[Rfam]
RNA: ZMP/ZTP riboswitch aptamer (pfl RNA motif)
Organism: Paucibacter sp. KBW04
RNA sequence: CACGCUUCGCGCGACUGGCGAUAAAAGGUUGAGCGGCUUCUAGCCAAGUCAAUCGACCCGAGGUGGUGGACCACCGGGAAGCGCGAACGAUCUCUGGACUGUGUCCGAGACCGCAUCAAGCCGUUCGCCUGGGCAGUUCUG
Numbered sequence: 001c002a003c004g005c006u007u008c009g010c011g012c013g014a015c016u017g018g019c020g021a022u023a024a025a026a027g028g029u030u031g032a033g034c035g036g037c038u039u040c041u042a043g044c045c046a047a048g049u050c051a052a053u054c055g056a057c058c059c060g061a062g063g064u065g066g067u068g069g070a071c072c073a074c075c076g077g078g079a080a081g082c083g084c085g086a087a088c089g090a091u092c093u094c095u096g097g098a099c100u101g102u103g104u105c106c107g108a109g110a111c112c113g114c115a116u117c118a119a120g121c122c123g124u125u126c127g128c129c130u131g132g133g134c135a136g137u138u139c140u141g
Stems, first nucleotide, its partner, number of pairs: 006087007015078002017129005063074004120134003